RNA sequence: AAGAGCCUUGAGUCAAUAAAGACUAAGAAGAUUGAUUCAAGAA
Numbered sequence: 001a002a003g004a005g006c007c008u009u010g011a012g013u014c015a016a017u018a019a020a021g022a023c024u025a026a027g028a029a030g031a032u033u034g035a036u037u038c039a040a041g042a043a
Stems, first nucleotide, its partner, number of pairs: 007041002010038008
Shown here is a 43-nucleotide sequence from Aquilaria malaccensis, a member of the family "Plastid-rpl16 group II-D1 intron". Taxonomically the source falls in Aquilaria (Eukaryota, Streptophyta, eudicotyledons, rosids). Its family is annotated with Group II intron splicing in the Gene Ontology. Rfam describes the family as follows. Plastid-rpl16 is a non-coding RNA (ncRNA) recognised in plastids. It was recognised in and intronic region of a ribosome rpl16 gene.